[Rfam]
Shown here is a 136-nucleotide RNA sequence from Phrynocephalus forsythii, a member of the family "Small nucleolar RNA SNORA29". The family's RNA type in Rfam is H/ACA-box small nucleolar RNA. Clan: SNORA20 clan. The family's consensus secondary structure was predicted with PFOLD. It scores 100 bits against the family's covariance model. The literature on the family includes a 2001 paper in EMBO J by Huttenhofer et al., "RNomics: an experimental approach that identifies 201 candidates for novel, small, non-messenger RNAs in mouse". Gene Ontology terms of the family: RNA processing and nucleolus. The organism belongs to Phrynocephalus, within Eukaryota. From the family's description: ACA29 is a member of the H/ACA class of snoRNA that guide the sites of modification of uridines to pseudouridines.
RNA sequence: GUUCCCAUUUGACUACCGCUUAAUUUGCACUAUAAAAUAAGUGGCUAUGCUUAUGGGAUAAAGAAACAACUGCCAGAGUCUGAAGGAGGAGAUUGGCAAUGUCUUUUUCCUACAUGAACUGGCAGAACAUUCCGUU
Numbered sequence: 001g002u003u004c005c006c007a008u009u010u011g012a013c014u015a016c017c018g019c020u021u022a023a024u025u026u027g028c029a030c031u032a033u034a035a036a037a038u039a040a041g042u043g044g045c046u047a048u049g050c051u052u053a054u055g056g057g058a059u060a061a062a063g064a065a066a067c068a069a070c071u072g073c074c075a076g077a078g079u080c081u082g083a084a085g086g087a088g089g090a091g092a093u094u095g096g097c098a099a100u101g102u103c104u105u106u107u108u109c110c111u112a113c114a115u116g117a118a119c120u121g122g123c124a125g126a127a128c129a130u131u132c133c134g135u136u
Base pairs, nucleotide, nucleotide: 004057005056006055007054016044017043018042019041072123073122074121075120090111091110